This 99-nucleotide RNA from Methylocella silvestris belongs to the Rfam family "Glycine riboswitch aptamer".

Nucleotides: 099
Base pairs, nucleotide, nucleotide: 006094007093008092009091010090011089012088013087020044021043022042023041024040025039026038027037028036029035046079047078048077049075050074053073054072055071059067060066
Number, partner (000 for none) and nucleotide at each position: 001000u002000u003000c004000c005000u006094c007093u008092c009091a010090g011089c012088g013087g014000a015000a016000g017000a018000g019000u020044c021043c022042g023041g024040u025039u026038u027037g028036g029035c030000u031000u032000u033000a034000g035029g036028c037027c038026g039025a040024g041023c042022c043021g044020g045000c046079g047078c048077c049075g050074a051000a052000g053073g054072c055071g056000c057000a058000a059067c060066c061000g062000c063000c064000c065000c066060g067059g068000a069000a070000a071055c072054g073053c074050u075049c076000a077048g078047g079046c080000c081000c082000a083000c084000g085000g086000a087013c088012c089011g090010c091009u092008g093007a094006g095000a096000g097000u098000u099000g
The match comes from Rfam's covariance-model search (65 bits).